[Rfam]
RNA sequence: GGUUGGCAGUUAUUUCGGUAACUGUUUCAAGUCUUUAGCUUUAGGGUGGAGAGCU
Number, nucleotide and partner (000 for none) at each position: 001g000002g000003u030004u029005g028006g025007c024008a023009g022010u021011u020012a000013u000014u000015u000016c000017g000018g000019u000020a011021a010022c009023u008024g007025u006026u000027u000028c005029a004030a003031g000032u000033c000034u000035u000036u000037a055038g054039c053040u052041u051042u050043a000044g000045g000046g000047u000048g000049g000050a042051g041052a040053g039054c038055u037
Shown here is a 55-nucleotide RNA from Ruminococcaceae bacterium BL-6, a member of the family "Na+ riboswitch aptamer (DUF1646)". Rfam links the family to the GO terms regulation of gene expression and sodium ion binding. NCBI's taxonomy places the organism under Bacteria, Bacillati, Clostridia, Eubacteriales, Oscillospiraceae. A reference for the family is White et al. (2022), "Na(+) riboswitches regulate genes for diverse physiological processes in bacteria", Nat Chem Biol. The base pairs follow the family's consensus structure, which is taken from published work.